[Rfam]
RNA sequence: CCCGCCAUGGACGGCGGCGGUUUUAGCCUUGAGAGUUUUGCGUACGCAAAACUCUGAGAUGAAAAAGGUACAAGGAUGUACGGUUUUUGAUGGAG
Numbered sequence: 001c002c003c004g005c006c007a008u009g010g011a012c013g014g015c016g017g018c019g020g021u022u023u024u025a026g027c028c029u030u031g032a033g034a035g036u037u038u039u040g041c042g043u044a045c046g047c048a049a050a051a052c053u054c055u056g057a058g059a060u061g062a063a064a065a066a067g068g069u070a071c072a073a074g075g076a077u078g079u080a081c082g083g084u085u086u087u088u089g090a091u092g093g094a095g
Stems, first nucleotide, its partner, number of pairs: 002017005032055010058091001060089006068081004
RNA: TD-2 RNA
Organism: Treponema pedis